Overview: glmS glucosamine-6-phosphate activated ribozyme aptamer: a 191-nucleotide RNA sequence from Firmicutes bacterium CAG:102.
RNA sequence: AAGAGUUUUUAAGCGCCAGAGCCGCAGAUUGGGCGGCUGACGAGGCAGGAGUGCAGAGAGCAUUUUAAGUAUUUUUUUGCUUUCCAUAUCGAAAAUUCGGCGGAUGCUCCUCGCCCUUUCGUUCAGGGUCGCAGGCCUUUUUACAAAACAGAGCGGUCAACGCUCCCGACAAAAGAAAGGCAACGAACGAA
Numbered sequence: 001a002a003g004a005g006u007u008u009u010u011a012a013g014c015g016c017c018a019g020a021g022c023c024g025c026a027g028a029u030u031g032g033g034c035g036g037c038u039g040a041c042g043a044g045g046c047a048g049g050a051g052u053g054c055a056g057a058g059a060g061c062a063u064u065u066u067a068a069g070u071a072u073u074u075u076u077u078u079g080c081u082u083u084c085c086a087u088a089u090c091g092a093a094a095a096u097u098c099g100g101c102g103g104a105u106g107c108u109c110c111u112c113g114c115c116c117u118u119u120c121g122u123u124c125a126g127g128g129u130c131g132c133a134g135g136c137c138u139u140u141u142u143a144c145a146a147a148a149c150a151g152a153g154c155g156g157u158c159a160a161c162g163c164u165c166c167c168g169a170c171a172a173a174a175g176a177a178a179g180g181c182a183a184c185g186a187a188c189g190a191a
Stems, first nucleotide, its partner, number of pairs: 020038006047111005057097001112131002115128003135181007151165005
NCBI's taxonomy places the organism under Bacteria, Bacillati, Bacillota. The base pairs follow the family's consensus structure, which is taken from published work.